[Rfam]
Rfam assigns this 130-nucleotide RNA sequence from Astyanax mexicanus to the family "Small nucleolar RNA SNORA77". Rfam describes the family as follows. ACA63 (SNORA77) is a member of the H/ACA class of snoRNAs that guide the sites of modification of uridines to pseudouridines. This snoRNA was identified by computational screening and its expression in mouse experimentally verified by Northern blot and primer extension analysis. ACA63 is proposed to guide the pseudouridylation of 18S rRNA U814.
RNA sequence: GCAGACUCACUCUGUUUGGGGUCUUCUUCUCCGUCCCUGAACUUUUUUCGUCUGCUAUAUUGAUCUGCAGAGCGUUCUGCACGGGUCUGUCUUCUUCGAGACAGACUCUGGAGUGUUCUGCUACAUCUCU
Numbered sequence: 001g002c003a004g005a006c007u008c009a010c011u012c013u014g015u016u017u018g019g020g021g022u023c024u025u026c027u028u029c030u031c032c033g034u035c036c037c038u039g040a041a042c043u044u045u046u047u048u049c050g051u052c053u054g055c056u057a058u059a060u061u062g063a064u065c066u067g068c069a070g071a072g073c074g075u076u077c078u079g080c081a082c083g084g085g086u087c088u089g090u091c092u093u094c095u096u097c098g099a100g101a102c103a104g105a106c107u108c109u110g111g112a113g114u115g116u117u118c119u120g121c122u123a124c125a126u127c128u129c130u
Stems, first nucleotide, its partner, number of pairs: 001055006014042007023033001067121007076113001078111001083108009
The organism belongs to Astyanax, within Eukaryota.
Its family is annotated with nucleolus and RNA processing in the Gene Ontology.
It scores 43 bits against the family's covariance model.
For this family Rfam cites "A computational screen for mammalian pseudouridylation guide H/ACA RNAs" (Schattner et al., RNA, 2006).